RNA: Plastid-ycf3 group II-D1 intron
RNA sequence: CUGACCUCUGUCGUGUAUCCUCGAUUAAUGCAGCCUCAGAUGCUAUA
Numbered sequence: 001c002u003g004a005c006c007u008c009u010g011u012c013g014u015g016u017a018u019c020c021u022c023g024a025u026u027a028a029u030g031c032a033g034c035c036u037c038a039g040a041u042g043c044u045a046u047a
Stems, first nucleotide, its partner, number of pairs: 010025004032044003